RNA sequence: AUCAGAUAGUAUACAAGCGCCGUGGAUCCGAAGCCUCUAGAAGGUUAACAUAGGCUUUCCACCUCCUACUCCUACUCAAUACGUCUCCGUCGUACAGAACGAUAACAUGUCUCUCAAUUAUCCAAGCUUGGGUAUACGGGGAAACCCAACCCCUUGGGCGGAUGUGUUGCAUGGCUAAAUUGAGAGGG
Numbered sequence: 001a002u003c004a005g006a007u008a009g010u011a012u013a014c015a016a017g018c019g020c021c022g023u024g025g026a027u028c029c030g031a032a033g034c035c036u037c038u039a040g041a042a043g044g045u046u047a048a049c050a051u052a053g054g055c056u057u058u059c060c061a062c063c064u065c066c067u068a069c070u071c072c073u074a075c076u077c078a079a080u081a082c083g084u085c086u087c088c089g090u091c092g093u094a095c096a097g098a099a100c101g102a103u104a105a106c107a108u109g110u111c112u113c114u115c116a117a118u119u120a121u122c123c124a125a126g127c128u129u130g131g132g133u134a135u136a137c138g139g140g141g142a143a144a145c146c147c148a149a150c151c152c153c154u155u156g157g158g159c160g161g162a163u164g165u166g167u168u169g170c171a172u173g174g175c176u177a178a179a180u181u182g183a184g185a186g187g188g
Stems, first nucleotide, its partner, number of pairs: 007099001010096001012094001019065001022062005028054002070188004075184006081093003086101001106173005113166001115164001120163004128149006151158002
RNA: drz-agam-2-2 ribozyme
Organism: Anopheles gambiae